[Rfam]
RNA sequence: GGAUCUUGAUUCGAUAAGACAGGGAUGAGGUCGAGCAUGGGAUGUGGCUAUCAACAAUUACAUCCACGUGGCGGAGUACUAUUGGCUGGGAAUUGAGACGGAGAAAAAUGUGAGGCGUGUUGGUGCCCCGUUCCAUGCACUGCCUCUUCCCUGGCUUCCCCUUUUGCUCUUGUU
Number, nucleotide and partner (000 for none) at each position: 001g000002g000003a000004u000005c000006u000007u000008g000009a000010u000011u000012c000013g000014a000015u000016a157017a156018g155019a000020c153021a152022g151023g150024g149025a148026u000027g000028a145029g144030g143031u142032c000033g140034a000035g138036c137037a136038u135039g134040g000041g133042a000043u000044g000045u000046g127047g126048c125049u000050a000051u000052c000053a000054a000055c000056a000057a000058u000059u000060a000061c000062a000063u000064c000065c000066a000067c000068g000069u000070g000071g000072c000073g000074g000075a000076g000077u000078a000079c000080u000081a000082u000083u000084g000085g000086c000087u000088g000089g000090g000091a000092a000093u000094u000095g000096a000097g000098a000099c000100g000101g000102a000103g000104a000105a000106a000107a000108a000109u000110g000111u000112g000113a000114g000115g000116c000117g000118u000119g000120u000121u000122g000123g000124u000125g048126c047127c046128c000129c000130g000131u000132u000133c041134c039135a038136u037137g036138c035139a000140c033141u000142g031143c030144c029145u028146c000147u000148u025149c024150c023151c022152u021153g020154g000155c018156u017157u016158c000159c000160c000161c000162u000163u000164u000165u000166g000167c000168u000169c000170u000171u000172g000173u000174u000
Record summary
A member of the RNA family "MIR408 microRNA precursor family" from Carex littledalei, 174 nucleotides long. It scores 66 bits against the family's covariance model. Rfam links the family to the GO terms RISC complex and miRNA-mediated post-transcriptional gene silencing. Lineage of the source: Eukaryota > Euphyllophyta > Petrosaviidae > commelinids > Carex subgen. Euthyceras.